[Rfam]
RNA sequence: GACAAGUAUUUUACGAUUAAGAAACAACUGUCUCUUGUAUAGAUCACGUAUUAAUUU
Numbered sequence: 001g002a003c004a005a006g007u008a009u010u011u012u013a014c015g016a017u018u019a020a021g022a023a024a025c026a027a028c029u030g031u032c033u034c035u036u037g038u039a040u041a042g043a044u045c046a047c048g049u050a051u052u053a054a055u056u057u
Base pairs, nucleotide, nucleotide: 018037019036020035021034022033024031025030

Overview:
The record is a 57-nucleotide RNA from Olea europaea, which matches "Plastid-rps18 3UTR RNA" in Rfam. On this family, see Richter et al., Plant Commun 2023: "Retrograde signaling in plants: A critical review focusing on the GUN pathway and beyond". The base pairs follow the family's consensus structure, which was predicted with LocARNA.